[Rfam]
RNA: ROOL RNA
RNA sequence: CUUUGAAAACAAGAUCAUAUUGAACUUAGUGCAGAGAAGUUGAACACUUCGCUAAGAUAUUUUGGAGAAUAAGUCCUCGUAGCUUACUAGUUGGGAUACUGGCUGGUGACUAUCGAAGUAGUGGUGACAUUAUGGAGUUUUGUAACCGCAAAAGAGGCAAAGAAAUAUGCAAAUGUGGCCCAGAAUUAACGUACUGAACUUUUCUACACGAUAAUAGACGCUCAGUGAGAAGAAGCCAAUAUUGCUGAUAUUUAGGGAUGAAUACAGUUUCCGUUGGUAAUUUCCAAAUAAGUGUGUUGCUGUGAAUGUUAGAAAUAACAGUAUAAGAAAAGAAGUGGGGACAUCGCUCAAAACGGCAAAUAACAUACAAGUCACUAUGUAAUGCUGAAUGUUCGGGUUGAUGUUGGAAGCUGAGAUGCUUGCCACGGUCUAGUAAAGCAUAAGGAAGUAGUGAGUCGCUCUUACUGCUCAGCCCUUAUGAACCGUUGACGGAACAAAUUCGCAAGUCACAGGCGUAGAGAUAAAUACUCCAAUAUGAUUUUGUUUUGAG
Numbered sequence: 001c002u003u004u005g006a007a008a009a010c011a012a013g014a015u016c017a018u019a020u021u022g023a024a025c026u027u028a029g030u031g032c033a034g035a036g037a038a039g040u041u042g043a044a045c046a047c048u049u050c051g052c053u054a055a056g057a058u059a060u061u062u063u064g065g066a067g068a069a070u071a072a073g074u075c076c077u078c079g080u081a082g083c084u085u086a087c088u089a090g091u092u093g094g095g096a097u098a099c100u101g102g103c104u105g106g107u108g109a110c111u112a113u114c115g116a117a118g119u120a121g122u123g124g125u126g127a128c129a130u131u132a133u134g135g136a137g138u139u140u141u142g143u144a145a146c147c148g149c150a151a152a153a154g155a156g157g158c159a160a161a162g163a164a165a166u167a168u169g170c171a172a173a174u175g176u177g178g179c180c181c182a183g184a185a186u187u188a189a190c191g192u193a194c195u196g197a198a199c200u201u202u203u204c205u206a207c208a209c210g211a212u213a214a215u216a217g218a219c220g221c222u223c224a225g226u227g228a229g230a231a232g233a234a235g236c237c238a239a240u241a242u243u244g245c246u247g248a249u250a251u252u253u254a255g256g257g258a259u260g261a262a263u264a265c266a267g268u269u270u271c272c273g274u275u276g277g278u279a280a281u282u283u284c285c286a287a288a289u290a291a292g293u294g295u296g297u298u299g300c301u302g303u304g305a306a307u308g309u310u311a312g313a314a315a316u317a318a319c320a321g322u323a324u325a326a327g328a329a330a331a332g333a334a335g336u337g338g339g340g341a342c343a344u345c346g347c348u349c350a351a352a353a354c355g356g357c358a359a360a361u362a363a364c365a366u367a368c369a370a371g372u373c374a375c376u377a378u379g380u381a382a383u384g385c386u387g388a389a390u391g392u393u394c395g396g397g398u399u400g401a402u403g404u405u406g407g408a409a410g411c412u413g414a415g416a417u418g419c420u421u422g423c424c425a426c427g428g429u430c431u432a433g434u435a436a437a438g439c440a441u442a443a444g445g446a447a448g449u450a451g452u453g454a455g456u457c458g459c460u461c462u463u464a465c466u467g468c469u470c471a472g473c474c475c476u477u478a479u480g481a482a483c484c485g486u487u488g489a490c491g492g493a494a495c496a497a498a499u500u501c502g503c504a505a506g507u508c509a510c511a512g513g514c515g516u517a518g519a520g521a522u523a524a525a526u527a528c529u530c531c532a533a534u535a536u537g538a539u540u541u542u543g544u545u546u547u548g549a550g
Stems, first nucleotide, its partner, number of pairs: 007547003012542003021533001025056005036050005058167006080112003086107009113135003119132005138153005174511006185500001187498001194338003199332006205296005221229003235278006244268004249264003255285004297358001300355001307320005342403001346398004351393001384473004407423001409421002425486003439480006448469001450466006518530003